Rfam assigns this 97-nucleotide RNA from Macaca fascicularis to the family "Y RNA". The base pairs follow the family's consensus structure, which is taken from published work.
RNA sequence: GGCCGGUCUGAGUACAGUGGUAUUUACAACUAACUGAUCACAACUAAUAGAUUUCUUUGUUCCUUCUCCAUUCCCACUGAUUCACUUGACUAGAAAA
Number, nucleotide and partner (000 for none) at each position: 001g000002g000003c093004c000005g091006g090007u089008c088009u000010g087011a086012g000013u000014a000015c000016a078017g077018u076019g075020g074021u000022a000023u000024u000025u000026a000027c000028a061029a060030c059031u000032a057033a056034c000035u000036g000037a000038u000039c000040a000041c000042a000043a000044c000045u000046a000047a000048u000049a000050g000051a000052u000053u000054u000055c000056u033057u032058u000059g030060u029061u028062c000063c000064u000065u000066c000067u000068c000069c000070a000071u000072u000073c000074c020075c019076a018077c017078u016079g000080a000081u000082u000083c000084a000085c000086u011087u010088g008089a007090c006091u005092a000093g003094a000095a000096a000097a000

The source organism's lineage runs through Eukaryota, Gnathostomata, Primates, Cercopithecoidea and Macaca. Rfam's curators write: Y RNAs are components of the Ro ribonucleoprotein particle (Ro RNP), in association with Ro60 and La proteins.